Class I RNA from Dictyostelium: a 61-nucleotide sequence from Acytostelium subglobosum. Rfam classes the family as a non-coding RNA gene. Pairs were carried over by alignment from the consensus structure, which is taken from published work. On this family, see Aspegren et al., Nucleic Acids Res 2004: "Novel non-coding RNAs in Dictyostelium discoideum and their expression during development".

RNA sequence: GGUCGUCUUACAGCAAUCACUACCAAACUUCAAACUUUAUAACUGAAAUCCCGAAGACCUG
Numbered sequence: 001g002g003u004c005g006u007c008u009u010a011c012a013g014c015a016a017u018c019a020c021u022a023c024c025a026a027a028c029u030u031c032a033a034a035c036u037u038u039a040u041a042a043c044u045g046a047a048a049u050c051c052c053g054a055a056g057a058c059c060u061g
Stems, first nucleotide, its partner, number of pairs: 001059004006054001
Rfam's curators write: Dictyostelium Class I RNA was first reported for Aspegren et al. 2004 in Dictyostelium discoideum.